[Rfam]
RNA sequence: GCCAUCUUAGUAUAGUGGUUAGUACACAUCGUUGUGGCCGAUGAAACCCUGGUUCGAUUCUAGGAGAUGGCA
Dot-bracket structure: (((((((..((((........)))).(((((.......)))))....(((((.......)))))))))))).
Rfam assigns this 72-nucleotide RNA sequence from Saccharomyces cerevisiae to the family "tRNA". Gene Ontology term of the family: triplet codon-amino acid adaptor activity. The family's consensus secondary structure is taken from published work. About the family: Transfer RNA (tRNA) molecules are approximately 80 nucleotides in length. Their secondary structure includes four short double-helical elements and three loops (D, anti-codon, and T loops). Further hydrogen bonds mediate the characteristic L-shaped molecular structure. tRNAs have two regions of fundamental functional importance: the anti-codon, which is responsible for specific mRNA codon recognition, and the 3' end, to which the tRNAs corresponding amino acid is attached (by aminoacyl-tRNA synthetases). tRNAs cope with the degeneracy of the genetic code in two manners: having more than one tRNA (with a specific anti-codon) for a particular amino acid; and 'wobble' base-pairing, i.e. permitting non-standard base-pairing at the 3rd anti-codon position.